[Rfam]
Shown here is a 99-nucleotide RNA from Ceratodon purpureus, a member of the family "Small nucleolar RNA Z122".

RNA sequence: UUUGGGAAAUGAUGAUACUUUUCGCCUCUCCCGAAUGUGUCUUCAUGAUACAUCAUGUGGGAUUGCGAAACAUGAUUUGCACGUCAGUCUGAUCCCUUG
Number, nucleotide and partner (000 for none) at each position: 001u099002u000003u000004g096005g095006g094007a093008a000009a000010u000011g000012a000013u000014g000015a000016u000017a000018c000019u000020u000021u000022u000023c000024g000025c000026c000027u000028c000029u000030c000031c000032c000033g000034a000035a000036u000037g000038u000039g000040u000041c000042u000043u000044c000045a000046u000047g000048a000049u000050a000051c000052a000053u000054c000055a000056u000057g000058u000059g000060g000061g000062a000063u000064u000065g000066c000067g000068a000069a000070a000071c000072a000073u000074g000075a000076u000077u000078u000079g000080c000081a000082c000083g000084u000085c000086a000087g000088u000089c000090u000091g000092a000093u007094c006095c005096c004097u000098u000099g001
The family's RNA type in Rfam is C/D-box small nucleolar RNA.